Annotation
A member of the RNA family "Guanidine-II riboswitch aptamer (mini-ykkC)" from Oxalobacter paraformigenes, 45 nucleotides long. Rfam's curators write: Simpler in structure and has fewer highly conserved nucleotide positions than the ykkC-yxkD leader. Pairs were carried over by alignment from the consensus structure, which is taken from published work.
RNA sequence: GGCCGGGGACGACCCCGGCUGUGUGUUCAAUGAAGGGACGGCCCU
Numbered sequence: 001g002g003c004c005g006g007g008g009a010c011g012a013c014c015c016c017g018g019c020u021g022u023g024u025g026u027u028c029a030a031u032g033a034a035g036g037g038a039c040g041g042c043c044c045u
Stems, first nucleotide, its partner, number of pairs: 001020008034045004